[Rfam]
RNA sequence: AGAUAGAAAAGGGAGCUCCCUUCAGUCCAAAUACAAGAAGCUUAAGAUUCAAUCUGUCUCCCGCUUCAUUCACUCAUUUACUAAGUAACACAAUAUAUUGACUUAGUAUUUGGAUGAAUGAGUCGGCAGCUAAUUGAAAUCUUACAACAACUCAUGAAUGGACCGAAAAAAGCUCCCUUCUUUAAUUGU
Numbered sequence: 001a002g003a004u005a006g007a008a009a010a011g012g013g014a015g016c017u018c019c020c021u022u023c024a025g026u027c028c029a030a031a032u033a034c035a036a037g038a039a040g041c042u043u044a045a046g047a048u049u050c051a052a053u054c055u056g057u058c059u060c061c062c063g064c065u066u067c068a069u070u071c072a073c074u075c076a077u078u079u080a081c082u083a084a085g086u087a088a089c090a091c092a093a094u095a096u097a098u099u100g101a102c103u104u105a106g107u108a109u110u111u112g113g114a115u116g117a118a119u120g121a122g123u124c125g126g127c128a129g130c131u132a133a134u135u136g137a138a139a140u141c142u143u144a145c146a147a148c149a150a151c152u153c154a155u156g157a158a159u160g161g162a163c164c165g166a167a168a169a170a171a172g173c174u175c176c177c178u179u180c181u182u183u184a185a186u187u188g189u
Base pairs, nucleotide, nucleotide: 013175014174015173016172017171023165025163026162027161028160029159036152058129059128061126062125063124067120068119069118070117075112
This 189-nucleotide RNA sequence from Cynara cardunculus belongs to the Rfam family "MIR159 microRNA precursor family". The organism belongs to Cynara cardunculus subsp. cardunculus, within Eukaryota. On this family, see Jones-Rhoades and Bartel, Mol Cell 2004: "Computational identification of plant microRNAs and their targets, including a stress-induced miRNA". The base pairs follow the family's consensus structure, which was predicted with WAR. Its family is annotated with RISC complex and miRNA-mediated post-transcriptional gene silencing in the Gene Ontology.